[Rfam]
RNA sequence: AAGGACCGUUCGGGAGAGCGCGGAGCGAUCCGCCGCCGAAGGAGCAACCGCCCCGGUAAACUCUCAGGCACCCAGGACCGACGGCCCUC
Numbered sequence: 001a002a003g004g005a006c007c008g009u010u011c012g013g014g015a016g017a018g019c020g021c022g023g024a025g026c027g028a029u030c031c032g033c034c035g036c037c038g039a040a041g042g043a044g045c046a047a048c049c050g051c052c053c054c055g056g057u058a059a060a061c062u063c064u065c066a067g068g069c070a071c072c073c074a075g076g077a078c079c080g081a082c083g084g085c086c087c088u089c
Stems, first nucleotide, its partner, number of pairs: 006084004011080003020033004035069003038065002042063003048056002
The record is an 89-nucleotide sequence from Sulfitobacter albidus, which matches "Glycine riboswitch aptamer" in Rfam. Pairs were carried over by alignment from the consensus structure. The source organism's lineage runs through Bacteria, Pseudomonadati, Alphaproteobacteria, Roseobacteraceae and Sulfitobacter.